[Rfam]
RNA sequence: CAAUAUUCACAUCAGCACAUAAUACUGCUGUUUAAGUGAUAUAUUAUAUCACUUAAACAGCAGUAUUAUGUGCUGAUGUGAAUAUUG
Numbered sequence: 001c002a003a004u005a006u007u008c009a010c011a012u013c014a015g016c017a018c019a020u021a022a023u024a025c026u027g028c029u030g031u032u033u034a035a036g037u038g039a040u041a042u043a044u045u046a047u048a049u050c051a052c053u054u055a056a057a058c059a060g061c062a063g064u065a066u067u068a069u070g071u072g073c074u075g076a077u078g079u080g081a082a083u084a085u086u087g
Base pairs, nucleotide, nucleotide: 001087002086003085005083006082007081010080011077012076013075014074015073016072017071018070021067022066023065024064025063026062027061028060029059030058031057032056033055034054035053036052
The record is an 87-nucleotide RNA sequence from Apolygus lucorum, which matches "mir-16 microRNA precursor family" in Rfam. Clan: mir-15 clan. Rfam links the family to the GO terms miRNA-mediated post-transcriptional gene silencing and RISC complex. NCBI's taxonomy places the organism under Eukaryota, Allotriocarida, Neoptera, Panheteroptera, Apolygus. It scores 38 bits against the family's covariance model.